Source information
The record is a 97-nucleotide RNA from Serinicoccus hydrothermalis, which matches "Glycine riboswitch aptamer" in Rfam. The organism belongs to Serinicoccus, within Bacteria. The match comes from Rfam's covariance-model search (56 bits). Pairs were carried over by alignment from the consensus structure.
RNA sequence: CGACGUCGCGUGGGAGAGUCCUCCCCGUCACACGGUGAGGCGCCGAAGGGGCAUACUCCCCACCAAGCUCUCAGGCGCACCGGACCACGCGGAGCAG
Numbered sequence: 001c002g003a004c005g006u007c008g009c010g011u012g013g014g015a016g017a018g019u020c021c022u023c024c025c026c027g028u029c030a031c032a033c034g035g036u037g038a039g040g041c042g043c044c045g046a047a048g049g050g051g052c053a054u055a056c057u058c059c060c061c062a063c064c065a066a067g068c069u070c071u072c073a074g075g076c077g078c079a080c081c082g083g084a085c086c087a088c089g090c091g092g093a094g095c096a097g
Base pairs, nucleotide, nucleotide: 006092007091008090009089010088011087012086013085020040021039022038023037042076043075044074045072046071049070050069051068